[Rfam]
RNA sequence: GGAUAAUUUAGGUGGGUGCCAGGAGUGCAUUUACAUUGUUGCAUCUUCGAUUUAAGGUGUAAAUGCACAAUCUGGUACGACAUCUAGUUAUCU
Numbered sequence: 001g002g003a004u005a006a007u008u009u010a011g012g013u014g015g016g017u018g019c020c021a022g023g024a025g026u027g028c029a030u031u032u033a034c035a036u037u038g039u040u041g042c043a044u045c046u047u048c049g050a051u052u053u054a055a056g057g058u059g060u061a062a063a064u065g066c067a068c069a070a071u072c073u074g075g076u077a078c079g080a081c082a083u084c085u086a087g088u089u090a091u092c093u
Base pairs, nucleotide, nucleotide: 008087009086010085011084016078017077018076019075020074021073022072023071025068027066028065029064030063031062032061033060034059035058